[Rfam]
A member of the RNA family "mir-30 microRNA precursor family" from Salmo trutta, 72 nucleotides long. Its family is annotated with gene silencing by miRNA and RISC complex in the Gene Ontology. A reference for the family is Lagos-Quintana et al. (2001), "Identification of novel genes coding for small expressed RNAs", Science. The organism belongs to Salmo, within Eukaryota. Pairs were carried over by alignment from the consensus structure, which was predicted with PFOLD.
RNA sequence: UAAGUGUAUGUAAACUUCCGACUUCAACUGUUAUAUAUAAAACAGUUGAAGUCGGAAGUUUACAUACACUUA
Numbered sequence: 001u002a003a004g005u006g007u008a009u010g011u012a013a014a015c016u017u018c019c020g021a022c023u024u025c026a027a028c029u030g031u032u033a034u035a036u037a038u039a040a041a042a043c044a045g046u047u048g049a050a051g052u053c054g055g056a057a058g059u060u061u062a063c064a065u066a067c068a069c070u071u072a
Stems, first nucleotide, its partner, number of pairs: 002071005008065022